[Rfam]
RNA: terC RNA
Organism: Sphingomonas parva
RNA sequence: GGUGCGGACCGGGCCCCUCUGGCGGGCGUCUCCUCGACGCUCGUGAUGUCGGACCGCAUCG
Numbered sequence: 001g002g003u004g005c006g007g008a009c010c011g012g013g014c015c016c017c018u019c020u021g022g023c024g025g026g027c028g029u030c031u032c033c034u035c036g037a038c039g040c041u042c043g044u045g046a047u048g049u050c051g052g053a054c055c056g057c058a059u060c061g
Base pairs, nucleotide, nucleotide: 006055007054009052010051011050012049022044023043024042025041026040027039028038029037